[Rfam]
Description:
Rfam assigns this 252-nucleotide sequence from Trifolium subterraneum to the family "MIR2655 microRNA precursor family". Gene Ontology terms of the family: miRNA-mediated post-transcriptional gene silencing and RISC complex. It scores 136 bits against the family's covariance model.
RNA sequence: CCCUUAUCUUUUAAAAGUUUCAAGUUGGUCCCUUAUCUUUUUUUUAGGUUUCAAGUUAGUCCCUUCCGUCAAUUUUUUUACUGUUACCGUUAAAUAUGAACAUGUGUCAUCUGUUCAAGUGUGCCACGUGUCCAAAUCAGUUUGCCACGUGUCCAAAUUUAACGGAAAUAGUUAAAAAAUUGACGGAAGGGACCAACUUGAAACCUAAAAUAAAGAUAAGGGACCAACUUGAAAAUUUUAAUAGAUAAGAGA
Numbered sequence: 001c002c003c004u005u006a007u008c009u010u011u012u013a014a015a016a017g018u019u020u021c022a023a024g025u026u027g028g029u030c031c032c033u034u035a036u037c038u039u040u041u042u043u044u045u046a047g048g049u050u051u052c053a054a055g056u057u058a059g060u061c062c063c064u065u066c067c068g069u070c071a072a073u074u075u076u077u078u079u080a081c082u083g084u085u086a087c088c089g090u091u092a093a094a095u096a097u098g099a100a101c102a103u104g105u106g107u108c109a110u111c112u113g114u115u116c117a118a119g120u121g122u123g124c125c126a127c128g129u130g131u132c133c134a135a136a137u138c139a140g141u142u143u144g145c146c147a148c149g150u151g152u153c154c155a156a157a158u159u160u161a162a163c164g165g166a167a168a169u170a171g172u173u174a175a176a177a178a179a180u181u182g183a184c185g186g187a188a189g190g191g192a193c194c195a196a197c198u199u200g201a202a203a204c205c206u207a208a209a210a211u212a213a214a215g216a217u218a219a220g221g222g223a224c225c226a227a228c229u230u231g232a233a234a235a236u237u238u239u240a241a242u243a244g245a246u247a248a249g250a251g252a
Base pairs, nucleotide, nucleotide: 003249004248005247006246007245008244023229024228025227027225028224029223031221032220033219034218035217036216037215038214039213040212042210043209045207046206047205